[Rfam]
RNA sequence: CUGCGGCGCAGACACACAGUCCGCGCUGCAGUUUUAACCAGGGCAGGGCUCGCAAGGCCAGUGCUCUAACUUUGAAGAAAUGAGACCAGCAGGGGCAUUCGGGCUGGUGCCCGGACUAUCUGCGUGAUCCUUAGUGGCUUGUUACGGUCGCUGCACACGACCGUCUCAGACUCGCUCUGUGUCUUCGCCGGUGGUGUCCCCUUACCGAGGGUGACCA
Dot-bracket structure: (((((((((.(((.....))).))))))))).........(((((..(((.....)))...)))))........................(((((((((((((......))))))(((((.(((.(((.(..(((((.(((....(((((.......)))))....)))..)))))..).)))..))).))))))).)))))...............
Numbered sequence: 001c002u003g004c005g006g007c008g009c010a011g012a013c014a015c016a017c018a019g020u021c022c023g024c025g026c027u028g029c030a031g032u033u034u035u036a037a038c039c040a041g042g043g044c045a046g047g048g049c050u051c052g053c054a055a056g057g058c059c060a061g062u063g064c065u066c067u068a069a070c071u072u073u074g075a076a077g078a079a080a081u082g083a084g085a086c087c088a089g090c091a092g093g094g095g096c097a098u099u100c101g102g103g104c105u106g107g108u109g110c111c112c113g114g115a116c117u118a119u120c121u122g123c124g125u126g127a128u129c130c131u132u133a134g135u136g137g138c139u140u141g142u143u144a145c146g147g148u149c150g151c152u153g154c155a156c157a158c159g160a161c162c163g164u165c166u167c168a169g170a171c172u173c174g175c176u177c178u179g180u181g182u183c184u185u186c187g188c189c190g191g192u193g194g195u196g197u198c199c200c201c202u203u204a205c206c207g208a209g210g211g212u213g214a215c216c217a
Stems, first nucleotide, its partner, number of pairs: 001031009011021003041066005048058003091202005096196002098115006116194005122188003126183003130179001133176005139169003146162005
sucA-II RNA: a 217-nucleotide sequence from Pseudomonas sp. StFLB209. The base pairs follow the family's consensus structure, which is taken from published work. Rfam classes the family as a cis-regulatory element. Lineage of the source: Bacteria > Pseudomonadota > Pseudomonadales > Pseudomonadaceae > Pseudomonas. It scores 175 bits against the family's covariance model.